[Rfam]
RNA sequence: UGGGAGUAUCCUGGUGGCAGGGUUCGAACCGUAGGGGUUCGACAGAGGCGCGCAGCGCCGGAGCGCGCCGCCGCAGGCGGCGGCCCGAAGGGCCGGGGCGAAGCCGAGCCAUCCUGCCACCCCAGCCA
Numbered sequence: 001u002g003g004g005a006g007u008a009u010c011c012u013g014g015u016g017g018c019a020g021g022g023u024u025c026g027a028a029c030c031g032u033a034g035g036g037g038u039u040c041g042a043c044a045g046a047g048g049c050g051c052g053c054a055g056c057g058c059c060g061g062a063g064c065g066c067g068c069c070g071c072c073g074c075a076g077g078c079g080g081c082g083g084c085c086c087g088a089a090g091g092g093c094c095g096g097g098g099c100g101a102a103g104c105c106g107a108g109c110c111a112u113c114c115u116g117c118c119a120c121c122c123c124a125g126c127c128a
Stems, first nucleotide, its partner, number of pairs: 015119007023111001034093001038089004045059001066082006
Dot-bracket structure: ..............(((((((.(..........(...((((...(.............)......((((((.....))))))...))))...).................).))))))).........

This 128-nucleotide sequence from endosymbiont of unidentified scaly snail isolate Monju belongs to the Rfam family "RtT RNA". The base pairs follow the family's consensus structure, which is taken from published work. Rfam's curators write: This family represents a bacterial cis-regulatory element known as RtT RNA. The exact function of RtT is unknown although it is thought that it may be involved in changing the cellular response in relation to amino acid starvation. The organism belongs to Gammaproteobacteria, within Bacteria. It is annotated as a cis-regulatory element.